The family of this 80-nucleotide RNA from Manihot esculenta is "small nucleolar RNA snoR117".
Rfam links the family to the GO terms nucleolus and RNA processing.
RNA sequence: GGCCUGUGAUGCAUAGAAAAAUUGUCCGUACCAUCUGAUGAUGUCAAUCUCUUGAUGUGUUGAAAUAUCUUCUGAGGCCU
Number, nucleotide and partner (000 for none) at each position: 001g079002g078003c077004c076005u000006g000007u000008g000009a000010u000011g000012c000013a000014u000015a000016g000017a000018a000019a000020a000021a000022u000023u000024g000025u000026c000027c000028g000029u000030a000031c000032c000033a000034u000035c000036u000037g000038a000039u000040g000041a000042u000043g000044u000045c000046a000047a000048u000049c000050u000051c000052u000053u000054g000055a000056u000057g000058u000059g000060u000061u000062g000063a000064a000065a000066u000067a000068u000069c000070u000071u000072c000073u000074g000075a000076g004077g003078c002079c001080u000
Notes
It scores 63 bits against the family's covariance model. By type it is a C/D-box small nucleolar RNA. On this family, see Chen and Wu, Nucleic Acids Res 2009: "Mining small RNA sequencing data: a new approach to identify small nucleolar RNAs in Arabidopsis".